This 81-nucleotide sequence from Desulfoluna spongiiphila belongs to the Rfam family "Group II catalytic intron D1-D4-1".
Rfam describes the family as follows. Group II introns are found in rRNA, tRNA and mRNA of organelles in fungi, plants and protists, and also in mRNA in bacteria.
Pairs were carried over by alignment from the consensus structure.
[Rfam]
RNA sequence: GGCUGAGGGCGGGGUAACCCGCUCUGACCGCAUGGGAGGAGUCAGCCGAGGGCAUAGUAGCCAGAGGAAACGAGCCGGGCC
Numbered sequence: 001g002g003c004u005g006a007g008g009g010c011g012g013g014g015u016a017a018c019c020c021g022c023u024c025u026g027a028c029c030g031c032a033u034g035g036g037a038g039g040a041g042u043c044a045g046c047c048g049a050g051g052g053c054a055u056a057g058u059a060g061c062c063a064g065a066g067g068a069a070a071c072g073a074g075c076c077g078g079g080c081c
Stems, first nucleotide, its partner, number of pairs: 001029002006025008042049002060080003064076001